[Rfam]
A member of the RNA family "FMN riboswitch aptamer (RFN element)" from Shouchella oshimensis, 127 nucleotides long. The family's consensus secondary structure is taken from published work. A search with the family's covariance model found it, with a score of 113 bits.
RNA sequence: AGGUAUCUUCGGGGCAGGUGAAAUUCCUGACCGGCGGUUAAAGCCCGCGACUCUGCAUAGUUUUUAUGUGGACUGAUUUGGUGAAAAUCCAAAGCCGACGGUAUAGUCCGGAUGGGAGAAGAUCAAA
Number, nucleotide and partner (000 for none) at each position: 001a000002g000003g000004u000005a123006u122007c121008u120009u119010c118011g000012g000013g000014g000015c000016a028017g027018g026019u000020g000021a000022a000023a000024u000025u000026c018027c017028u016029g000030a107031c106032c097033g096034g048035c047036g046037g045038u000039u000040a000041a000042a000043g095044c094045c037046c036047g035048c034049g000050a000051c000052u072053c071054u000055g000056c000057a000058u000059a000060g000061u000062u000063u000064u000065u000066a000067u000068g000069u000070g000071g053072a052073c000074u000075g000076a000077u093078u092079u091080g090081g089082u000083g000084a000085a000086a000087a000088u000089c081090c080091a079092a078093a077094g044095c043096c033097g032098a000099c110100g109101g108102u000103a000104u000105a000106g031107u030108c101109c100110g099111g000112a000113u000114g000115g000116g000117a000118g010119a009120a008121g007122a006123u005124c000125a000126a000127a000